[Rfam]
The family of this 111-nucleotide RNA sequence from Camelus ferus is "Small nucleolar RNA SNORD23". For this family Rfam cites "Purified box C/D snoRNPs are able to reproduce site-specific 2'-O-methylation of target RNA in vitro" (Galardi et al., Mol Cell Biol, 2002). Rfam classes the family as a C/D-box small nucleolar RNA. Pairs were carried over by alignment from the consensus structure. The source organism's lineage runs through Eukaryota, Teleostomi, Euteleostomi, Eutheria and Camelus.

RNA sequence: UGCCCGGUGAUGACACCUAUCCUUGCUCCCCGUGUCCACUAGGGACUAUGGGCGACAUCCUGGCUGCCCCCGGGCUGGGCUGGUUGGGCUGAUGCCUGGGGGCUGAGGGCA
Number, nucleotide and partner (000 for none) at each position: 001u111002g110003c109004c108005c107006g000007g000008u000009g000010a000011u000012g000013a000014c000015a000016c000017c000018u000019a000020u000021c000022c000023u000024u000025g000026c000027u000028c000029c000030c000031c000032g000033u000034g000035u000036c000037c000038a000039c000040u000041a000042g000043g000044g000045a000046c000047u000048a000049u000050g000051g000052g000053c000054g000055a000056c000057a000058u000059c000060c000061u000062g000063g000064c000065u000066g000067c000068c000069c000070c000071c000072g000073g000074g000075c000076u000077g000078g000079g000080c000081u000082g000083g000084u000085u000086g000087g000088g000089c000090u000091g000092a000093u000094g000095c000096c000097u000098g000099g000100g000101g000102g000103c000104u000105g000106a000107g005108g004109g003110c002111a001